[Rfam]
RNA sequence: AUGCGAGGACGGCCUCGCGCUUUCCAGCAUUGGGGACGGCCCC
Numbered sequence: 001a002u003g004c005g006a007g008g009a010c011g012g013c014c015u016c017g018c019g020c021u022u023u024c025c026a027g028c029a030u031u032g033g034g035g036a037c038g039g040c041c042c043c
Stems, first nucleotide, its partner, number of pairs: 002019007032043004
RNA: Guanidine-II riboswitch aptamer (mini-ykkC)
Organism: Candidatus Viadribacter manganicus